[Rfam]
RNA sequence: CAGUGAUGCUCUGGAAAGAGCACCGGCCCUUGGGCUCGGUGCCGCCGAAGGGGUAACCCCGCCGCCGCAUUCUCACUGCGCCGGCCUUGGGGAAAACUCUCAGGUUCCGUGACAGAGGGGGCUCC
Numbered sequence: 001c002a003g004u005g006a007u008g009c010u011c012u013g014g015a016a017a018g019a020g021c022a023c024c025g026g027c028c029c030u031u032g033g034g035c036u037c038g039g040u041g042c043c044g045c046c047g048a049a050g051g052g053g054u055a056a057c058c059c060c061g062c063c064g065c066c067g068c069a070u071u072c073u074c075a076c077u078g079c080g081c082c083g084g085c086c087u088u089g090g091g092g093a094a095a096a097c098u099c100u101c102a103g104g105u106u107c108c109g110u111g112a113c114a115g116a117g118g119g120g121g122c123u124c125c
Stems, first nucleotide, its partner, number of pairs: 007119001009117005020042007044105003047101002051099003057092005
Dot-bracket structure: ......(.(((((......(((((((.........))))))).(((((..(((...(((((..........................)))))....))))).))).......))))).)......